The family of this 56-nucleotide RNA sequence from Halogranum gelatinilyticum is "eL15-Euryarchaeota ribosomal protein leader".
Taxonomically the source falls in Halogranum (Archaea, Halobacteria, Halobacteriales, Haloferacaceae).
A search with the family's covariance model found it, with a score of 42 bits.
RNA sequence: CCCGUCCAAGACGGGAACGGGACGAAAUGUGGUUGCGUUCGCAACUGAAUCGCAAG
Numbered sequence: 001c002c003c004g005u006c007c008a009a010g011a012c013g014g015g016a017a018c019g020g021g022a023c024g025a026a027a028u029g030u031g032g033u034u035g036c037g038u039u040c041g042c043a044a045c046u047g048a049a050u051c052g053c054a055a056g
Stems, first nucleotide, its partner, number of pairs: 001021005023052003031046005